[Rfam]
RNA sequence: AGGCCCAGAGAGAGAGGCAGGGUCUGAUCUGCAGCAUCUGUGGCAGUUGUUGAUCAGCCAUUGCCUCUCUCUUUCUCUCUU
Numbered sequence: 001a002g003g004c005c006c007a008g009a010g011a012g013a014g015a016g017g018c019a020g021g022g023u024c025u026g027a028u029c030u031g032c033a034g035c036a037u038c039u040g041u042g043g044c045a046g047u048u049g050u051u052g053a054u055c056a057g058c059c060a061u062u063g064c065c066u067c068u069c070u071c072u073u074u075c076u077c078u079c080u081u
Base pairs, nucleotide, nucleotide: 008073009072010071011070012069013068014067015066016065017064018063019062020061022059024057025056026055027054028053029052032049033048034047035046
Dot-bracket structure: .......(((((((((((((.(.((((((..((((..........))))..)))))).).)))))))))))))........

Rfam assigns this 81-nucleotide sequence from Myotis myotis to the family "mir-574 microRNA precursor family".
It scores 97 bits against the family's covariance model.
The family is grouped with related families in Rfam's "mir-574 microRNA precursor clan".
The base pairs follow the family's consensus structure, which was predicted with RNAalifold.
A reference for the family is Lui et al. (2007), "Patterns of known and novel small RNAs in human cervical cancer", Cancer Res.
Taxonomically the source falls in Myotis (Eukaryota, Opisthokonta, Deuterostomia, Craniata).